[Rfam]
Source information:
The family of this 81-nucleotide RNA from Marinobacterium lacunae is "c-di-GMP-I riboswitch aptamer". Pairs were carried over by alignment from the consensus structure, which is taken from published work.

RNA sequence: CUCCCGAAAAGGCAACCUUCGGGCUAACUGAAGCGCGCAAAGCUACGGGUCCAAAUGUGGAUGGACCGCCGAGCUACCGAA
Numbered sequence: 001c002u003c004c005c006g007a008a009a010a011g012g013c014a015a016c017c018u019u020c021g022g023g024c025u026a027a028c029u030g031a032a033g034c035g036c037g038c039a040a041a042g043c044u045a046c047g048g049g050u051c052c053a054a055a056u057g058u059g060g061a062u063g064g065a066c067c068g069c070c071g072a073g074c075u076a077c078c079g080a081a
Stems, first nucleotide, its partner, number of pairs: 012038002017033006041075004046071003049066003